ZMP/ZTP riboswitch aptamer (pfl RNA motif): an 85-nucleotide RNA sequence. The sequence is in the family's curated seed alignment.
RNA sequence: GGUCAAAAGCGCGACUGGCGUUAGGUAAGUGGGAAACCACUGGGAAGCGCUGAAGCAUCAAAAAUCGCACGCCUGGGUUUUUGUC
Number, nucleotide and partner (000 for none) at each position: 001g000002g000003u000004c055005a000006a000007a000008a051009g050010c049011g048012c047013g000014a000015c044016u043017g073018g072019c071020g070021u069022u000023a000024g000025g000026u000027a000028a000029g040030u039031g038032g037033g000034a000035a000036a000037c032038c031039a030040c029041u000042g000043g016044g015045a000046a000047g012048c011049g010050c009051u008052g000053a000054a000055g004056c000057a000058u000059c000060a000061a000062a080063a079064a078065u077066c076067g000068c000069a021070c020071g019072c018073c017074u000075g000076g066077g065078u064079u063080u062081u000082u000083g000084u000085c000